The family of this 130-nucleotide RNA sequence from Oryzias javanicus is "Small nucleolar RNA SNORA71". By type it is an H/ACA-box small nucleolar RNA. Gene Ontology terms of the family: nucleolus and RNA processing. A reference for the family is Ganot et al. (1997), "The family of box ACA small nucleolar RNAs is defined by an evolutionarily conserved secondary structure and ubiquitous sequence elements essential for RNA accumulation", Genes Dev. The base pairs follow the family's consensus structure, which was predicted with PFOLD.
RNA sequence: CCCUGUAACGAAAGGUGGCCUCGGUGUCUCGAGUCGCGUGGUCAUUAAAACUACAGGAAGAGAAAUUUGUGAGACUUUCCCGUGUUUGAAGGACUUUCCGUUCCUGUCAGACCCCAGUUGCUCACAGACA
Number, nucleotide and partner (000 for none) at each position: 001c000002c057003c056004u055005g054006u053007a052008a000009c000010g000011a000012a000013a000014g046015g045016u044017g043018g042019c041020c040021u000022c000023g000024g037025u036026g035027u000028c000029u000030c000031g000032a000033g000034u000035c026036g025037c024038g000039u000040g020041g019042u018043c017044a016045u015046u014047a000048a000049a000050a000051c000052u007053a006054c005055a004056g003057g002058a000059a000060g000061a000062g000063a000064a000065a000066u000067u000068u126069g125070u124071g123072a122073g121074a000075c000076u000077u000078u000079c000080c000081c000082g000083u000084g112085u111086u110087u109088g108089a000090a105091g104092g103093a102094c000095u000096u000097u000098c000099c000100g000101u000102u093103c092104c091105u090106g000107u000108c088109a087110g086111a085112c084113c000114c000115c000116a000117g000118u000119u000120g000121c073122u072123c071124a070125c069126a068127g000128a000129c000130a000